Rfam assigns this 132-nucleotide sequence from Urinicoccus massiliensis to the family "Streptococcus sRNA SpR18". The match comes from Rfam's covariance-model search (128 bits). A reference for the family is Mann et al. (2012), "Control of virulence by small RNAs in Streptococcus pneumoniae", PLoS Pathog.

RNA sequence: AUCAACGGUUACAGAAGAUAAAAAACUGUAACUGGGACUAAAAUGGGAACAUUUGUAAAAAAGAAUAAAUUGAAUAAUUCUUCCAAGUGGCUUACAUCUGGAUAAAAAAUUAGACUGUAGUUUCAAUGGUUC
Numbered sequence: 001a002u003c004a005a006c007g008g009u010u011a012c013a014g015a016a017g018a019u020a021a022a023a024a025a026c027u028g029u030a031a032c033u034g035g036g037a038c039u040a041a042a043a044u045g046g047g048a049a050c051a052u053u054u055g056u057a058a059a060a061a062a063g064a065a066u067a068a069a070u071u072g073a074a075u076a077a078u079u080c081u082u083c084c085a086a087g088u089g090g091c092u093u094a095c096a097u098c099u100g101g102a103u104a105a106a107a108a109a110u111u112a113g114a115c116u117g118u119a120g121u122u123u124c125a126a127u128g129g130u131u132c
Stems, first nucleotide, its partner, number of pairs: 006034009043118004051066004081102001083101003087097003